The family of this 358-nucleotide RNA sequence from Holzapfeliella floricola is "Bacterial RNase P class B".

RNA sequence: GGUUUUGAGCAAUCGCGGUAAUCUUUAUGAUUGCUGAGGAAAGUCCACGCCCGCACAGGCUGAGAUGCCUGUAGUGUUCGUGCUUGGCCCAAUAAGCCCUGGGACUUCUUUUGAAGUUACGGCAGUUAAAGUGCUAAGGUCUUUGACUAUGCAUGACUAGCUUGAAAGUGCCACAGUGACGUAGCAAUAUUGGAAACUUUAUUGGUGGAACGAGGUAAACCCCGCGAGCGAGCAACCCAAACAUUGGUAGGGGCGCUUCAUUUAAGUAAAUGAACUAAAAAUGAAGGUAGAAAUACAGAUAGAUGAUUGCUGAAGGUAUUUUUCCUAGAAAUACUGGAACAGAACGUGGCUUAUAGAA
Numbered sequence: 001g002g003u004u005u006u007g008a009g010c011a012a013u014c015g016c017g018g019u020a021a022u023c024u025u026u027a028u029g030a031u032u033g034c035u036g037a038g039g040a041a042a043g044u045c046c047a048c049g050c051c052c053g054c055a056c057a058g059g060c061u062g063a064g065a066u067g068c069c070u071g072u073a074g075u076g077u078u079c080g081u082g083c084u085u086g087g088c089c090c091a092a093u094a095a096g097c098c099c100u101g102g103g104a105c106u107u108c109u110u111u112u113g114a115a116g117u118u119a120c121g122g123c124a125g126u127u128a129a130a131g132u133g134c135u136a137a138g139g140u141c142u143u144u145g146a147c148u149a150u151g152c153a154u155g156a157c158u159a160g161c162u163u164g165a166a167a168g169u170g171c172c173a174c175a176g177u178g179a180c181g182u183a184g185c186a187a188u189a190u191u192g193g194a195a196a197c198u199u200u201a202u203u204g205g206u207g208g209a210a211c212g213a214g215g216u217a218a219a220c221c222c223c224g225c226g227a228g229c230g231a232g233c234a235a236c237c238c239a240a241a242c243a244u245u246g247g248u249a250g251g252g253g254c255g256c257u258u259c260a261u262u263u264a265a266g267u268a269a270a271u272g273a274a275c276u277a278a279a280a281a282u283g284a285a286g287g288u289a290g291a292a293a294u295a296c297a298g299a300u301a302g303a304u305g306a307u308u309g310c311u312g313a314a315g316g317u318a319u320u321u322u323u324c325c326u327a328g329a330a331a332u333a334c335u336g337g338a339a340c341a342g343a344a345c346g347u348g349g350c351u352u353a354u355a356g357a358a
Base pairs, nucleotide, nucleotide: 004358005357006356007354008311009310010309011308012307013306014305016036017035018034019033020032021031041352042351043350045349046348047347048346049345050232052230053229054228055072056071057070058069059068060067078227079226080225081224082223083101086098087097088096102120103118104117105116106115107114108113121222122221124162125161126160131154132153133152134151138148139147140146168220169219170216171215172214185204186203187202188201189200192197236252237251238250256286257285258284259283260282261281262280287296288295289294315335316334317333318332319331320330321329322328

On this family, see Frank and Pace, Annu Rev Biochem 1998: "Ribonuclease P: unity and diversity in a tRNA processing ribozyme". Ribonuclease P (RNase P) is a ubiquitous endoribonuclease, found in archaea, bacteria and eukarya as well as chloroplasts and mitochondria. Its best characterised activity is the generation of mature 5'-ends of tRNAs by cleaving the 5'-leader elements of precursor-tRNAs. Cellular RNase Ps are ribonucleoproteins. RNA from bacterial RNase Ps retains its catalytic activity in the absence of the protein subunit, i.e. it is a ribozyme.